[Rfam]
RNA sequence: GGAAAUCGGUAACCGAAGUUUAUGGGCAACAACGGGGGACCCACUUCUUACGGCGUGAAAGCGUCUCGGGGUGAAGCUCUGCUUGGUGCAGGCCGGUUCAUUCUCCAGAACCGAACCCGACAGCUAACUUCGUAGGCGCAACAGUGAGAGGAA
Numbered sequence: 001g002g003a004a005a006u007c008g009g010u011a012a013c014c015g016a017a018g019u020u021u022a023u024g025g026g027c028a029a030c031a032a033c034g035g036g037g038g039a040c041c042c043a044c045u046u047c048u049u050a051c052g053g054c055g056u057g058a059a060a061g062c063g064u065c066u067c068g069g070g071g072u073g074a075a076g077c078u079c080u081g082c083u084u085g086g087u088g089c090a091g092g093c094c095g096g097u098u099c100a101u102u103c104u105c106c107a108g109a110a111c112c113g114a115a116c117c118c119g120a121c122a123g124c125u126a127a128c129u130u131c132g133u134a135g136g137c138g139c140a141a142c143a144g145u146g147a148g149a150g151g152a153a
Stems, first nucleotide, its partner, number of pairs: 013136002020029001032133006042068001069118003077092001079091003095112004